RNA sequence: AGCGCAGCAGGUCAGGCAGCAUCCAAGGAGCAGGAGGAUUCCUGCUCCUUGGAUGCUGCCUGACCUGCUGCGCUUU
Dot-bracket structure: ((((((((((((..((((((.(((.(((((((.((....)).))))))).))).))))))..))))))))))))..
Numbered sequence: 001a002g003c004g005c006a007g008c009a010g011g012u013c014a015g016g017c018a019g020c021a022u023c024c025a026a027g028g029a030g031c032a033g034g035a036g037g038a039u040u041c042c043u044g045c046u047c048c049u050u051g052g053a054u055g056c057u058g059c060c061u062g063a064c065c066u067g068c069u070g071c072g073c074u075u076u
Stems, first nucleotide, its partner, number of pairs: 001074012015060006022053003026049007034041002
Shown here is a 76-nucleotide RNA sequence from Chiloscyllium punctatum, a member of the family "mir-2756 microRNA precursor family". The organism belongs to Chiloscyllium, within Eukaryota. It scores 62 bits against the family's covariance model. Its family is annotated with RISC complex and miRNA-mediated post-transcriptional gene silencing in the Gene Ontology. Pairs were carried over by alignment from the consensus structure, which was predicted with RNAalifold.